Shown here is a 90-nucleotide RNA sequence from Rosa chinensis, a member of the family "Small nucleolar RNA Z102/R77". The source organism's lineage runs through Eukaryota, Euphyllophyta, Spermatophyta, Pentapetalae and Rosa. It is annotated as a C/D-box small nucleolar RNA. The family's consensus secondary structure was predicted with PFOLD. On this family, see Barneche et al., J Mol Biol 2001: "Identification of 66 box C/D snoRNAs in Arabidopsis thaliana: extensive gene duplications generated multiple isoforms predicting new ribosomal RNA 2'-O-methylation sites". It scores 79 bits against the family's covariance model.
[Rfam]
RNA sequence: AGAUGAGGAUGAUGAUUUGAACUUGUUUCCCUAUUGGUUUGAUCGCCGGUAUGAUGGCGAAACUAUGUAUUAGCUCUAUCUGACUCAUCU
Numbered sequence: 001a002g003a004u005g006a007g008g009a010u011g012a013u014g015a016u017u018u019g020a021a022c023u024u025g026u027u028u029c030c031c032u033a034u035u036g037g038u039u040u041g042a043u044c045g046c047c048g049g050u051a052u053g054a055u056g057g058c059g060a061a062a063c064u065a066u067g068u069a070u071u072a073g074c075u076c077u078a079u080c081u082g083a084c085u086c087a088u089c090u
Stems, first nucleotide, its partner, number of pairs: 002089004044059004